Overview: Shown here is a 113-nucleotide RNA from Labrus bergylta, a member of the family "Small nucleolar RNA SNORD67". Rfam describes the family as follows. snoRNA HBII-166 belongs to the C/D family of snoRNAs. The literature on the family includes a 2001 paper in EMBO J by Huttenhofer et al., "RNomics: an experimental approach that identifies 201 candidates for novel, small, non-messenger RNAs in mouse". Its family is annotated with nucleolus and RNA processing in the Gene Ontology.

Nucleotides: 113
Base pairs, nucleotide, nucleotide: 004112007109024067025066026065027064029061030060031059033057034056035055039052041050042049043048
Number, partner (000 for none) and nucleotide at each position: 001000u002000a003000u004112g005000a006000c007109a008000a009000u010000g011000a012000u013000g014000a015000g016000u017000u018000g019000c020000a021000c022000u023000a024067u025066u026065u027064g028000u029061c030060g031059g032000g033057u034056u035055g036000c037000u038000g039052u040000u041050u042049g043048c044000a045000g046000u047000u048043g049042c050041a051000c052039g053000g054000c055035u056034g057033a058000c059031c060030u061029g062000u063000c064027c065026a066025g067024a068000c069000a070000a071000a072000c073000u074000g075000u076000g077000g078000u079000g080000a081000c082000a083000c084000c085000c086000a087000u088000u089000g090000u091000g092000c093000a094000c095000a096000g097000g098000g099000g100000c101000c102000a103000u104000c105000u106000g107000a108000g109007u110000c111000a112004c113000c